[Rfam]
A member of the RNA family "Small nucleolar RNA SNORA58" from Bos taurus, 135 nucleotides long.
RNA sequence: GGGCAUACUUGUAGACCUUGCCUGACUAUCCCUGUGGCCAGGCAGGGGGGACAGUGUAUGCAAGAGUAAUAUGGAGUUUGUGCUAGCUCUUGCCAGCUCAUUAAUGGCUGGAUGAACUGCAGUUCUCCAACAUUC
Dot-bracket structure: ..((((((.......(((((((((..............)))))))))........))))))...........((((....(((.........(((((.........))))).......)))...)))).......
ACA52 is a member of the H/ACA class of snoRNA that guide the sites of modification of uridines to pseudouridines. Its Rfam clan is "SNORA44 clan". Taxonomically the source falls in Bos (Eukaryota, Deuterostomia, Artiodactyla, Pecora). The family's RNA type in Rfam is H/ACA-box small nucleolar RNA. Pairs were carried over by alignment from the consensus structure, which was predicted with PFOLD.